[Rfam]
RNA sequence: AUAAAGAUGAAAAAAAUCAGUUGGAUUACACUAAACAUAUAUUCUGUUUGAUUUUUUAACCUCCCACUUCAGAUUUAU
Numbered sequence: 001a002u003a004a005a006g007a008u009g010a011a012a013a014a015a016a017u018c019a020g021u022u023g024g025a026u027u028a029c030a031c032u033a034a035a036c037a038u039a040u041a042u043u044c045u046g047u048u049u050g051a052u053u054u055u056u057u058a059a060c061c062u063c064c065c066a067c068u069u070c071a072g073a074u075u076u077a078u
Stems, first nucleotide, its partner, number of pairs: 001078005
RNA: Small nucleolar RNA R12